[Rfam]
RNA sequence: GAAGCAAAUGAUGAUAGCAAGACAGGGACAUCAGAACCCUCCGGGGUAAUGACAGACUACGUCUAUAAUGGGAAUCUCUCUGAUGUUUU
Numbered sequence: 001g002a003a004g005c006a007a008a009u010g011a012u013g014a015u016a017g018c019a020a021g022a023c024a025g026g027g028a029c030a031u032c033a034g035a036a037c038c039c040u041c042c043g044g045g046g047u048a049a050u051g052a053c054a055g056a057c058u059a060c061g062u063c064u065a066u067a068a069u070g071g072g073a074a075u076c077u078c079u080c081u082g083a084u085g086u087u088u089u
Stems, first nucleotide, its partner, number of pairs: 002088005
The record is an 89-nucleotide RNA sequence from Brachypodium distachyon, which matches "Small nucleolar RNA R44/J54/Z268 family" in Rfam. Lineage of the source: Eukaryota > Euphyllophyta > Poales > Pooideae > Brachypodium. Rfam 15.1 lists 1,168 matches to the family in 228 species. The family's RNA type in Rfam is C/D-box small nucleolar RNA. Pairs were carried over by alignment from the consensus structure, which was predicted with PFOLD.